[Rfam]
Nucleotides: 044
Base pairs, nucleotide, nucleotide: 003044004043005042007039008038009037010036015033016032017031018030019029021028022027
Number, partner (000 for none) and nucleotide at each position: 001000a002000u003044g004043g005042u006000u007039c008038c009037g010036g011000u012000u013000c014000a015033c016032g017031c018030c019029c020000a021028g022027u023000g024000a025000a026000c027022g028021c029019g030018g031017g032016c033015g034000a035000c036010c037009c038008g039007g040000c041000g042005a043004c044003c